[Rfam]
RNA sequence: UGCCGAGGAAAACCUCGGUAGUUAACUGCCGCUUGUUUCAUUUUUCCUCGGUAGUUAACUGUCGAGGCGUCC
Numbered sequence: 001u002g003c004c005g006a007g008g009a010a011a012a013c014c015u016c017g018g019u020a021g022u023u024a025a026c027u028g029c030c031g032c033u034u035g036u037u038u039c040a041u042u043u044u045u046c047c048u049c050g051g052u053a054g055u056u057a058a059c060u061g062u063c064g065a066g067g068c069g070u071c072c
Stems, first nucleotide, its partner, number of pairs: 013067001015065017
A member of the RNA family "MIR2629 microRNA precursor family" from Medicago truncatula, 72 nucleotides long. Taxonomically the source falls in Medicago (Eukaryota, Viridiplantae, Streptophyta, Pentapetalae).